[Rfam]
RNA: c-di-GMP-II-GAG riboswitch aptamer
RNA sequence: GAUGUAAGGGGAGACAGAGAUCCGCGCCGCGUAACCGGUCACCUUGCGGCACGGGGAGUCAGUGGUGAGACCGCCCCCGACGUC
Numbered sequence: 001g002a003u004g005u006a007a008g009g010g011g012a013g014a015c016a017g018a019g020a021u022c023c024g025c026g027c028c029g030c031g032u033a034a035c036c037g038g039u040c041a042c043c044u045u046g047c048g049g050c051a052c053g054g055g056g057a058g059u060c061a062g063u064g065g066u067g068a069g070a071c072c073g074c075c076c077c078c079g080a081c082g083u084c
Stems, first nucleotide, its partner, number of pairs: 001084005008078004013060003022054003026050004037072002039068005